[Rfam]
RNA sequence: UCGGCCGCUGCUGUGUGGAAGACUAGUGAUUUUGUUGUUUUAGUUAGUUCAAGCGACAACAAAUCACGGUCUGCCAAACAGCACGGGCUC
Numbered sequence: 001u002c003g004g005c006c007g008c009u010g011c012u013g014u015g016u017g018g019a020a021g022a023c024u025a026g027u028g029a030u031u032u033u034g035u036u037g038u039u040u041u042a043g044u045u046a047g048u049u050c051a052a053g054c055g056a057c058a059a060c061a062a063a064u065c066a067c068g069g070u071c072u073g074c075c076a077a078a079c080a081g082c083a084c085g086g087g088c089u090c
Stems, first nucleotide, its partner, number of pairs: 003088001005086002009083001011081004016076003020072005026067007034060006